This 183-nucleotide sequence from Carnobacterium iners belongs to the Rfam family "Lysine riboswitch aptamer". The family's consensus secondary structure is taken from published work. It scores 110 bits against the family's covariance model.
[Rfam]
RNA sequence: UAGACAGAUAGAGGUGCGAUUUUUAAAAGUACGCUAACCCAGAAGAGGCAAAGGGUUAGCGAAAAGGAAAAAUCGCCGAAGUGACUAGUGGAGCCAAGCUAGUAGUUGCUGGUUUUGAAUAAAAUAUAUUCAAGACUGUCAUGAAAAUCAAUUAUUUGAUUCUUAUGGAGGACUAUCAACAAA
Numbered sequence: 001u002a003g004a005c006a007g008a009u010a011g012a013g014g015u016g017c018g019a020u021u022u023u024u025a026a027a028a029g030u031a032c033g034c035u036a037a038c039c040c041a042g043a044a045g046a047g048g049c050a051a052a053g054g055g056u057u058a059g060c061g062a063a064a065a066g067g068a069a070a071a072a073u074c075g076c077c078g079a080a081g082u083g084a085c086u087a088g089u090g091g092a093g094c095c096a097a098g099c100u101a102g103u104a105g106u107u108g109c110u111g112g113u114u115u116u117g118a119a120u121a122a123a124a125u126a127u128a129u130u131c132a133a134g135a136c137u138g139u140c141a142u143g144a145a146a147a148u149c150a151a152u153u154a155u156u157u158g159a160u161u162c163u164u165a166u167g168g169a170g171g172a173c174u175a176u177c178a179a180c181a182a183a
Base pairs, nucleotide, nucleotide: 007177008176009175010174011173016076017075018074019073020072021071022070023069024068032061033060034059035058036057037056038055039054080110081109082108083107084106085105086104087103089101090100091099111137112136113135114134115133116132117131118130119129120128121127139168140167141166142165143164144163